This 31-nucleotide RNA sequence from Ovis aries belongs to the Rfam family "Iron response element II". Gene Ontology term of the family: response to iron ion. Rfam describes the family as follows. IRE, TFRC, SLC40A1, SDHB, SLC11A2, CDC42BPA, ACO2, ALAS2_H.SAPIENS, CDC14A, EPAS1, ALAS2, qoxD, Hao1, NDUFS1, transferrin, Aconitate. The family's RNA type in Rfam is cis-regulatory element. The base pairs follow the family's consensus structure, which is taken from published work.
RNA sequence: UCAACAUCUUGAACAGUGCUUCAAAUGUUUU
Numbered sequence: 001u002c003a004a005c006a007u008c009u010u011g012a013a014c015a016g017u018g019c020u021u022c023a024a025a026u027g028u029u030u031u
Stems, first nucleotide, its partner, number of pairs: 003029005009024005014018001
Dot-bracket structure: ..(((((.((((((...).))))))))))..